RNA sequence: CCCCACAGCUCCUGGGCCGCAGCUGUUCUCACGGCAGCAGCUGUGGCAUUCCUCUGUGGGAGAGAAACUGUUACACGAUUGAAACCGCUUUCUUAGCAAAACAGAAAGCGGGCAUGUGUGUGACAAACACAG
Numbered sequence: 001c002c003c004c005a006c007a008g009c010u011c012c013u014g015g016g017c018c019g020c021a022g023c024u025g026u027u028c029u030c031a032c033g034g035c036a037g038c039a040g041c042u043g044u045g046g047c048a049u050u051c052c053u054c055u056g057u058g059g060g061a062g063a064g065a066a067a068c069u070g071u072u073a074c075a076c077g078a079u080u081g082a083a084a085c086c087g088c089u090u091u092c093u094u095a096g097c098a099a100a101a102c103a104g105a106a107a108g109c110g111g112g113c114a115u116g117u118g119u120g121u122g123a124c125a126a127a128c129a130c131a132g
Base pairs, nucleotide, nucleotide: 003059004058005057006056017046018045019044020043021042022041023040024039025038073121074120075119076118077117085112086111088108089107090106091105092104093103
Overview:
The record is a 132-nucleotide sequence from Equus caballus, which matches "Small nucleolar RNA SNORA41" in Rfam. Rfam classes the family as an H/ACA-box small nucleolar RNA. From the family's description: ACA41 is a member of the H/ACA class of snoRNA that guide the sites of modification of uridines to pseudouridines. Rfam 15.1 lists 676 matches to the family in 522 species. Lineage of the source: Eukaryota > Eumetazoa > Deuterostomia > Craniata > Equus. Its family is annotated with RNA processing and nucleolus in the Gene Ontology.